RNA sequence: ACUUAUAGCUAGACUUACCUAUAGUUACUUAUCUAGGCUUUUACCUAGUAUACUCUUCUAUAGGUAGGCUAGUAAUAGUUUAGGUAGUUAGAUAAAGGUCUUUAUUAUAUACCUCUCUUUAGGGAGGCCUUAUAGAGGAGAUAAUAUAUAACUAGCCUAGACUAAGGUCUAUAUAUUUACUAGGAUGCUAGCAUAAUAGCUAUAAGUAGCCUAUCUUAAUAUAUAG
Numbered sequence: 001a002c003u004u005a006u007a008g009c010u011a012g013a014c015u016u017a018c019c020u021a022u023a024g025u026u027a028c029u030u031a032u033c034u035a036g037g038c039u040u041u042u043a044c045c046u047a048g049u050a051u052a053c054u055c056u057u058c059u060a061u062a063g064g065u066a067g068g069c070u071a072g073u074a075a076u077a078g079u080u081u082a083g084g085u086a087g088u089u090a091g092a093u094a095a096a097g098g099u100c101u102u103u104a105u106u107a108u109a110u111a112c113c114u115c116u117c118u119u120u121a122g123g124g125a126g127g128c129c130u131u132a133u134a135g136a137g138g139a140g141a142u143a144a145u146a147u148a149u150a151a152c153u154a155g156c157c158u159a160g161a162c163u164a165a166g167g168u169c170u171a172u173a174u175a176u177u178u179a180c181u182a183g184g185a186u187g188c189u190a191g192c193a194u195a196a197u198a199g200c201u202a203u204a205a206g207u208a209g210c211c212u213a214u215c216u217u218a219a220u221a222u223a224u225a226g
Stems, first nucleotide, its partner, number of pairs: 001207011016066008070190005076184001211226004